[Rfam]
RNA sequence: ACUCGAUAAUGGCAAAACUGGUGAAAUCCAGUGACGCAAAGCUAUAGGGGCUAAGGUGUAUCUUACACUAUGCCAGCCAGUUACCGAA
Numbered sequence: 001a002c003u004c005g006a007u008a009a010u011g012g013c014a015a016a017a018c019u020g021g022u023g024a025a026a027u028c029c030a031g032u033g034a035c036g037c038a039a040a041g042c043u044a045u046a047g048g049g050g051c052u053a054a055g056g057u058g059u060a061u062c063u064u065a066c067a068c069u070a071u072g073c074c075a076g077c078c079a080g081u082u083a084c085c086g087a088a
Stems, first nucleotide, its partner, number of pairs: 012037002017032005040082004047078002049074003056068004